[Rfam]
RNA: RT-15 RNA
RNA sequence: CCGCGCCCGCUACCUGAAGGUUACGGCUUUCUGGUCUGUGCGAAUUGAAUCUGGUCGUGCCGCUGACCUGGUAGGUCACCGCCAUGCGCACAAGAGAUACCGCCGGUCUAAAGCGUCCGGGCAGGUCUCGCGCAGUUUCCUUGCUGAUCGGCUAUGCCUUCGGCUCGGCGACGUAGAUAGCACGAUAGGUCG
Numbered sequence: 001c002c003g004c005g006c007c008c009g010c011u012a013c014c015u016g017a018a019g020g021u022u023a024c025g026g027c028u029u030u031c032u033g034g035u036c037u038g039u040g041c042g043a044a045u046u047g048a049a050u051c052u053g054g055u056c057g058u059g060c061c062g063c064u065g066a067c068c069u070g071g072u073a074g075g076u077c078a079c080c081g082c083c084a085u086g087c088g089c090a091c092a093a094g095a096g097a098u099a100c101c102g103c104c105g106g107u108c109u110a111a112a113g114c115g116u117c118c119g120g121g122c123a124g125g126u127c128u129c130g131c132g133c134a135g136u137u138u139c140c141u142u143g144c145u146g147a148u149c150g151g152c153u154a155u156g157c158c159u160u161c162g163g164c165u166c167g168g169c170g171a172c173g174u175a176g177a178u179a180g181c182a183c184g185a186u187a188g189g190u191c192g
Base pairs, nucleotide, nucleotide: 004042005041006040012035013034014033016031017030018029019028020027021026055185056184057183058182059181060180061081062080064078065077066076067075068074085134086133087132088131089130094129095128096127097126100125101124103120104119105118106117136171137170139168140167143164144163145162146161147160150158151157152156